[Rfam]
RNA sequence: CACGGAGGACGGCCUCCACGCUUCCCAAGCGUUUCCAGACAAUCCGGGACGGCCCGA
Numbered sequence: 001c002a003c004g005g006a007g008g009a010c011g012g013c014c015u016c017c018a019c020g021c022u023u024c025c026c027a028a029g030c031g032u033u034u035c036c037a038g039a040c041a042a043u044c045c046g047g048g049a050c051g052g053c054c055c056g057a
Base pairs, nucleotide, nucleotide: 001020004017005016006015007014008013045056046055047054048053
RNA: Guanidine-II riboswitch aptamer (mini-ykkC)
Organism: Phyllobacterium endophyticum